[Rfam]
RNA sequence: CAGUGGGAAGUAUUUUAAGGACUGUCUAAUCUGAGAAUGGUAAAAUUAGCGGUCAAUCUCAGGUUCGUCAGCCCAUGAAAUGCUUUCCUCAU
Numbered sequence: 001c002a003g004u005g006g007g008a009a010g011u012a013u014u015u016u017a018a019g020g021a022c023u024g025u026c027u028a029a030u031c032u033g034a035g036a037a038u039g040g041u042a043a044a045a046u047u048a049g050c051g052g053u054c055a056a057u058c059u060c061a062g063g064u065u066c067g068u069c070a071g072c073c074c075a076u077g078a079a080a081u082g083c084u085u086u087c088c089u090c091a092u
Base pairs, nucleotide, nucleotide: 005089006088007087008085009084010083011082012081013080014079015078016077019074020073022071023070024069026067028065029064030063031062032061033060034059035058036057038055039054